[Rfam]
RNA sequence: AUCUUUGCGCAGUGGCAAUGUCGUAACUUAUGAUAUGAUAAGUGCGAUUAUUGCUGGUUGAAAACUCUUACCAAUACCAAUGCUAUAACGAUGUGAAAUAUUGGCUACGGCAAUUUUUGAAAGUUUCUGCGGAAA
Numbered sequence: 001a002u003c004u005u006u007g008c009g010c011a012g013u014g015g016c017a018a019u020g021u022c023g024u025a026a027c028u029u030a031u032g033a034u035a036u037g038a039u040a041a042g043u044g045c046g047a048u049u050a051u052u053g054c055u056g057g058u059u060g061a062a063a064a065c066u067c068u069u070a071c072c073a074a075u076a077c078c079a080a081u082g083c084u085a086u087a088a089c090g091a092u093g094u095g096a097a098a099u100a101u102u103g104g105c106u107a108c109g110g111c112a113a114u115u116u117u118u119g120a121a122a123g124u125u126u127c128u129g130c131g132g133a134a135a
Base pairs, nucleotide, nucleotide: 020048021047022046023045024044026043027042028041029040030039082111083110084109089103090102091101092100093099094098124135125134126133127132